[Rfam]
RNA sequence: AUGGUAACUUGCCAGCAGCGAGGUAUAGAGUUCCUACGUAAUAGUUGCAAUAGUAGGAACUUCAUACCGUGCUCUUGGACUUGCCAUA
Numbered sequence: 001a002u003g004g005u006a007a008c009u010u011g012c013c014a015g016c017a018g019c020g021a022g023g024u025a026u027a028g029a030g031u032u033c034c035u036a037c038g039u040a041a042u043a044g045u046u047g048c049a050a051u052a053g054u055a056g057g058a059a060c061u062u063c064a065u066a067c068c069g070u071g072c073u074c075u076u077g078g079a080c081u082u083g084c085c086a087u088a
Stems, first nucleotide, its partner, number of pairs: 012078003017073004022068005028062010
Notes:
mir-276 microRNA precursor family: an 88-nucleotide sequence from Zootermopsis nevadensis. The base pairs follow the family's consensus structure, which was predicted with RNAalifold. Gene Ontology terms of the family: miRNA-mediated post-transcriptional gene silencing and RISC complex.